[Rfam]
RNA: U2 spliceosomal RNA
Organism: Symbiodinium natans
RNA sequence: AUACCUUCUCGGCCUUUUGGCUAUGAUCAAGUGUAGUAUCUGUUCUUAUCAGUGUGACAACUGAUAUGUCUCCAACUGGAGACUUGCUUGUCACAUCAAUUUUUUCUGUGGAAGUGUCUUCAUGAGCUCGCUCAGAAGCCUUCACGUGUUGCGCUGGCAUGGCACCAAGCCAGUGGCAGCACACCCUAC
Dot-bracket structure: ......((..((((....))))..))....................((((((........)))))).((((((....))))))...........................((((..(.....((((....))))..)..))))..((((((.((((((..........))))))..)))))).......
Numbered sequence: 001a002u003a004c005c006u007u008c009u010c011g012g013c014c015u016u017u018u019g020g021c022u023a024u025g026a027u028c029a030a031g032u033g034u035a036g037u038a039u040c041u042g043u044u045c046u047u048a049u050c051a052g053u054g055u056g057a058c059a060a061c062u063g064a065u066a067u068g069u070c071u072c073c074a075a076c077u078g079g080a081g082a083c084u085u086g087c088u089u090g091u092c093a094c095a096u097c098a099a100u101u102u103u104u105u106c107u108g109u110g111g112a113a114g115u116g117u118c119u120u121c122a123u124g125a126g127c128u129c130g131c132u133c134a135g136a137a138g139c140c141u142u143c144a145c146g147u148g149u150u151g152c153g154c155u156g157g158c159a160u161g162g163c164a165c166c167a168a169g170c171c172a173g174u175g176g177c178a179g180c181a182c183a184c185c186c187u188a189c
Stems, first nucleotide, its partner, number of pairs: 007026002011022004047066006068083006111143004117137001123134004146182006153174006